[Rfam]
RNA: Bacteroidete tryptophan peptide leader RNA
RNA sequence: AAACAGAGUGAAAUGUAAAGAUGAAUACGAUUUUAGUAAAUACAUAUUGGUGGCAAUUCUUACAACUCCCGUAGUCGUGAGAAGCAACCUUAUGUAAUUAAAAAUAUAUACCGUAUAAAGAGGUUUGCC
Numbered sequence: 001a002a003a004c005a006g007a008g009u010g011a012a013a014u015g016u017a018a019a020g021a022u023g024a025a026u027a028c029g030a031u032u033u034u035a036g037u038a039a040a041u042a043c044a045u046a047u048u049g050g051u052g053g054c055a056a057u058u059c060u061u062a063c064a065a066c067u068c069c070c071g072u073a074g075u076c077g078u079g080a081g082a083a084g085c086a087a088c089c090u091u092a093u094g095u096a097a098u099u100a101a102a103a104a105u106a107u108a109u110a111c112c113g114u115a116u117a118a119a120g121a122g123g124u125u126u127g128c129c
Base pairs, nucleotide, nucleotide: 037100038099041096042095043094044093045092046091049088051086052085057083058082059081063077065075066074067073